[Rfam]
RNA sequence: CGGAAGUGCCUUGCUGAUUGUGCGUGCUGGAAGCGUGAAGAACUCCCGUCAUCGCAGGUCACAAGGCACUUCUUCAUUUUCCCAAACGUCAUCCACAGGCAUCAGCCGUGGAUCGAG
Numbered sequence: 001c002g003g004a005a006g007u008g009c010c011u012u013g014c015u016g017a018u019u020g021u022g023c024g025u026g027c028u029g030g031a032a033g034c035g036u037g038a039a040g041a042a043c044u045c046c047c048g049u050c051a052u053c054g055c056a057g058g059u060c061a062c063a064a065g066g067c068a069c070u071u072c073u074u075c076a077u078u079u080u081c082c083c084a085a086a087c088g089u090c091a092u093c094c095a096c097a098g099g100c101a102u103c104a105g106c107c108g109u110g111g112a113u114c115g116a117g
Stems, first nucleotide, its partner, number of pairs: 002073012015061003019057001021056004025051002028048001030046001032044002100115001102111003

The family of this 117-nucleotide RNA is "Actinobacteria sRNA Ms_IGR-7". The literature on the family includes a 2013 paper in RNA by Li et al., "Identification of small RNAs in Mycobacterium smegmatis using heterologous Hfq". Pairs were carried over by alignment from the consensus structure.